[Rfam]
RNA sequence: CUUGCACUCAACCCAAAAAGGCUAUCCGUAACACAUCGGUGCGUCUUUUGUCAAAUGUGCAUACAGUGCAGACAUCUUGUCGCCUGUCGCAGACGUCCUGUGUUUGCGAGAGUGGAGAGUUAAGAUGCUACAUAU
Numbered sequence: 001c002u003u004g005c006a007c008u009c010a011a012c013c014c015a016a017a018a019a020g021g022c023u024a025u026c027c028g029u030a031a032c033a034c035a036u037c038g039g040u041g042c043g044u045c046u047u048u049u050g051u052c053a054a055a056u057g058u059g060c061a062u063a064c065a066g067u068g069c070a071g072a073c074a075u076c077u078u079g080u081c082g083c084c085u086g087u088c089g090c091a092g093a094c095g096u097c098c099u100g101u102g103u104u105u106g107c108g109a110g111a112g113u114g115g116a117g118a119g120u121u122a123a124g125a126u127g128c129u130a131c132a133u134a135u
Base pairs, nucleotide, nucleotide: 003061004060005059006058007057018047019046020045021044022043026039027038028037073127074126075125076124077123078122084112085111087109088108089107090106091105092104093103094102
Dot-bracket structure: ..(((((..........(((((...(((........)))...))))).........)))))...........((((((.....((.((((((((.......)))))))).)).........))))))........

The record is a 135-nucleotide RNA from Eptatretus burgeri, which matches "Small nucleolar RNA SNORA68" in Rfam. It is annotated as an H/ACA-box small nucleolar RNA. NCBI's taxonomy places the organism under Eukaryota, Opisthokonta, Myxiniformes, Eptatretinae, Eptatretus. It scores 48 bits against the family's covariance model.